[Rfam]
RNA sequence: GGCACAGAUACUGCAUAUGCUAGAGCGGAGCCCCGAAUGGCGUAUCGUCGGGGGAGUCGGCCCGGCGGCCGGCGUCAUCGCUUU
Numbered sequence: 001g002g003c004a005c006a007g008a009u010a011c012u013g014c015a016u017a018u019g020c021u022a023g024a025g026c027g028g029a030g031c032c033c034c035g036a037a038u039g040g041c042g043u044a045u046c047g048u049c050g051g052g053g054g055a056g057u058c059g060g061c062c063c064g065g066c067g068g069c070c071g072g073c074g075u076c077a078u079c080g081c082u083u084u
Base pairs, nucleotide, nucleotide: 031053032052033051034050035049036048038047039046040045056073057072058071059070060069061068

Shown here is an 84-nucleotide RNA sequence from Xanthomonas arboricola, a member of the family "rpfG RNA". NCBI's taxonomy places the organism under Bacteria, Pseudomonadati, Gammaproteobacteria, Lysobacteraceae, Xanthomonas arboricola pv. juglandis. By type it is a small RNA. It is one of the family's seed sequences.